[Rfam]
RNA: Bacterial RNase P class A
Nucleotides: 355
Base pairs, nucleotide, nucleotide: 001351002350003349004348005347006346007345008344009343010342011340012319013318014317015316016315017314018313020037021036023034024033025032026031042338043337044336046335047334048333049332050331051225052224053223054222058256059255060254061253063221064220065219066218067217068082069081070080071079072078083097084095085094086093087092098216099215103214104213106209107208121155122154123151124150125149129147130146131145163181164180165179166178167177168176182205183203184202185201186200187199188197189196190195229276230275231274232273238267239266240265241264242263243262250258251257283302284301285300286299287298288297289296290295
Number, partner (000 for none) and nucleotide at each position: 001351c002350a003349g004348g005347u006346g007345g008344a009343a010342c011340a012319g013318a014317c015316a016315g017314u018313c019000g020037c021036c022000g023034c024033g025032u026031g027000g028000c029000a030000a031026c032025a033024c034023g035000g036021g037020g038000a039000g040000g041000a042338a043337a044336g045000u046335c047334c048333g049332g050331g051225c052224u053223g054222c055000a056000c057000a058256g059255a060254g061253c062000a063221g064220g065219a066218u067217g068082c069081c070080g071079g072078c073000u074000a075000a076000c077000g078072g079071c080070c081069g082068g083097g084095u085094g086093c087092g088000g089000c090000a091000a092087c093086g094085c095084a096000a097083c098216g099215g100000a101000a102000a103214g104213u105000g106209g107208c108000a109000c110000a111000g112000a113000a114000a115000g116000c117000c118000a119000a120000a121155c122154c123151g124150c125149c126000g127000a128000u129147g130146g131145u132000c133000g134000g135000g136000g137000c138000a139000a140000c141000c142000c143000g144000a145131a146130u147129c148000a149125g150124g151123u152000a153000a154122g155121g156000g157000u158000g159000a160000a161000a162000a163181g164180g165179u166178g167177c168176g169000g170000u171000a172000a173000g174000a175000g176168c177167g178166c179165a180164c181163c182205g183203c184202g185201c186200a187199a188197c189196u190195g191000g192000c193000a194000a195190c196189a197188g198000c199187u200186u201185g202184c203183g204000g205182c206000a207000g208107g209106c210000a211000a212000a213104a214103c215099c216098c217067c218066a219065u220064c221063c222054g223053c224052a225051g226000c227000a228000a229276g230275a231274c232273c233000a234000a235000a236000c237000a238267g239266a240265a241264c242263g243262c244000a245000u246000u247000g248000a249000c250258g251257c252000u253061g254060c255059u256058c257251g258250c259000c260000g261000a262243g263242c264241g265240u266239u267238c268000g269000g270000g271000u272000a273232g274231g275230u276229u277000g278000c279000u280000c281000g282000a283302a284301u285300c286299u287298u288297g289296c290295g291000g292000c293000a294000a295290c296289g297288c298287a299286a300285g301284g302283u303000c304000u305000a306000g307000a308000u309000g310000a311000a312000u313018g314017a315016c316015u317014g318013u319012c320000c321000a322000a323000c324000g325000a326000c327000a328000g329000a330000a331050c332049c333048c334047g335046g336044c337043u338042u339000a340011u341000c342010g343009u344008u345007u346006u347005a348004c349003c350002u351001g352000c353000c354000c355000c